[Rfam]
RNA sequence: UCUGGUGCUGUGAUUAUAAAGAACAUUCCUCGUACUGAAUGCUGUCAAAAUCGGCAUGAUAGACUCCUUCUACACCCAUAGAAUAUGAGCACCA
Numbered sequence: 001u002c003u004g005g006u007g008c009u010g011u012g013a014u015u016a017u018a019a020a021g022a023a024c025a026u027u028c029c030u031c032g033u034a035c036u037g038a039a040u041g042c043u044g045u046c047a048a049a050a051u052c053g054g055c056a057u058g059a060u061a062g063a064c065u066c067c068u069u070c071u072a073c074a075c076c077c078a079u080a081g082a083a084u085a086u087g088a089g090c091a092c093c094a
Stems, first nucleotide, its partner, number of pairs: 003094002006091002

Small nucleolar RNA snoR8a: a 94-nucleotide sequence from Ananas comosus. Rfam 15.1 lists 956 matches to the family in 245 species. Rfam classes the family as a C/D-box small nucleolar RNA. The literature on the family includes a 2001 paper in RNA by Brown et al., "Multiple snoRNA gene clusters from Arabidopsis". The source organism's lineage runs through Eukaryota, Spermatophyta, Magnoliopsida, Liliopsida and Ananas. The match comes from Rfam's covariance-model search (81 bits).